[Rfam]
RNA sequence: UGGGUAGUAUCUCUUUUCGGGAACUGCACCGCCGAUGGAAUUAUUAUUAAAGACAGUAUUUCAUAUUGGUGUCAUGCGACCCGCUUGGAGCCUAAUCGGACCGAGACGGAAGG
Numbered sequence: 001u002g003g004g005u006a007g008u009a010u011c012u013c014u015u016u017u018c019g020g021g022a023a024c025u026g027c028a029c030c031g032c033c034g035a036u037g038g039a040a041u042u043a044u045u046a047u048u049a050a051a052g053a054c055a056g057u058a059u060u061u062c063a064u065a066u067u068g069g070u071g072u073c074a075u076g077c078g079a080c081c082c083g084c085u086u087g088g089a090g091c092c093u094a095a096u097c098g099g100a101c102c103g104a105g106a107c108g109g110a111a112g113g
Stems, first nucleotide, its partner, number of pairs: 001031003004027005010022002081109003084105005091099002

Overview:
The record is a 113-nucleotide RNA sequence from Thermincola carboxydiphila, which matches "pan motif" in Rfam. Pairs were carried over by alignment from the consensus structure, which is taken from published work. NCBI's taxonomy places the organism under Bacteria, Bacillati, Clostridia, Eubacteriales, Thermincola carboxydiphila.